[Rfam]
RNA sequence: GAAAGCUGCGACGUUUUUUCAGGUGGUGAGUGCGCGCAUGGGCAGGAUGGCAUAGCCAUUCGGCGGAAGCACCCAUGCGCGACGAACAGGCUCCCGACGGGGCCUUUUUUUAUGCCCGAA
Numbered sequence: 001g002a003a004a005g006c007u008g009c010g011a012c013g014u015u016u017u018u019u020c021a022g023g024u025g026g027u028g029a030g031u032g033c034g035c036g037c038a039u040g041g042g043c044a045g046g047a048u049g050g051c052a053u054a055g056c057c058a059u060u061c062g063g064c065g066g067a068a069g070c071a072c073c074c075a076u077g078c079g080c081g082a083c084g085a086a087c088a089g090g091c092u093c094c095c096g097a098c099g100g101g102g103c104c105u106u107u108u109u110u111u112a113u114g115c116c117c118g119a120a
Stems, first nucleotide, its partner, number of pairs: 007028001009026001030115003033081010045061006063070002086106001088105007

Rfam assigns this 120-nucleotide RNA from Arminella tumorigenes to the family "Rhizobiales sRNA Atu_C8". It is annotated as a small RNA.